[Rfam]
A member of the RNA family "FMN riboswitch aptamer (RFN element)" from Anaerocolumna chitinilytica, 149 nucleotides long.
Lineage of the source: Bacteria > Clostridia > Lachnospirales > Lachnospiraceae > Anaerocolumna.
About the family: The RFN element is a highly conserved domain that is found frequently in the 5'-untranslated regions of prokaryotic mRNAs that encode for flavin mononucleotide (FMN) biosynthesis and transport proteins. This element is a metabolite-dependent riboswitch that directly binds FMN in the absence of proteins. In Bacillus subtilis, the riboswitch most likely controls gene expression by causing premature transcription termination within the 5' untranslated region of the ribDEAHT operon and precluding access to the ribosome-binding site of ypaA mRNA.The FMN riboswitch structure, reported in present an FMN-bound six-stem junction, adopts a butterfly-like scaffold, stapled together by opposingly directed but nearly identically folded peripheral domains.
The match comes from Rfam's covariance-model search (110 bits).
RNA sequence: GAAAUUCUUCGGGGCAGGGUUAAAUUCCCGACCGGCGGUAUAGUCCGCGACCUGAUACAGGGUAAUAAGUGAAGUUAAAACUUACUGGUAUCAGUUGAUUUGGUGCAAUUCCAAAACCGACAGUAUAGUCUGGAUGUGAGAAGAAACUG
Numbered sequence: 001g002a003a004a005u006u007c008u009u010c011g012g013g014g015c016a017g018g019g020u021u022a023a024a025u026u027c028c029c030g031a032c033c034g035g036c037g038g039u040a041u042a043g044u045c046c047g048c049g050a051c052c053u054g055a056u057a058c059a060g061g062g063u064a065a066u067a068a069g070u071g072a073a074g075u076u077a078a079a080a081c082u083u084a085c086u087g088g089u090a091u092c093a094g095u096u097g098a099u100u101u102g103g104u105g106c107a108a109u110u111c112c113a114a115a116a117c118c119g120a121c122a123g124u125a126u127a128g129u130c131u132g133g134a135u136g137u138g139a140g141a142a143g144a145a146a147c148u149g
Base pairs, nucleotide, nucleotide: 005145006144007143008142009141010140017029018028019027031129032128033119034118035048036047037046038045043117044116052094053093054092055091056090057089058088099115100114101113102112103111121132122131123130